[Rfam]
RNA sequence: ACAUGACUAAUUACAUACAGGUUCUAUAAUAAAUAGCCUCGUGAUUACGGGGUUUUUUGUUAUUUGGACUUUUAAAUAUCCAUGAAAUGGAUCGUUUUAGGGGCUUUUAGCCCUUUUUUC
Numbered sequence: 001a002c003a004u005g006a007c008u009a010a011u012u013a014c015a016u017a018c019a020g021g022u023u024c025u026a027u028a029a030u031a032a033a034u035a036g037c038c039u040c041g042u043g044a045u046u047a048c049g050g051g052g053u054u055u056u057u058u059g060u061u062a063u064u065u066g067g068a069c070u071u072u073u074a075a076a077u078a079u080c081c082a083u084g085a086a087a088u089g090g091a092u093c094g095u096u097u098u099a100g101g102g103g104c105u106u107u108u109a110g111c112c113c114u115u116u117u118u119u120c
Stems, first nucleotide, its partner, number of pairs: 033056001035054007101113004

The family of this 120-nucleotide RNA sequence from Shewanella intestini is "Gammaprotebacteria rimP leader". By type it is a cis-regulatory leader. The family's consensus secondary structure is taken from published work. A reference for the family is Naville and Gautheret (2010), "Premature terminator analysis sheds light on a hidden world of bacterial transcriptional attenuation", Genome Biol. The source organism's lineage runs through Bacteria, Pseudomonadati, Pseudomonadota, Alteromonadales and Shewanella.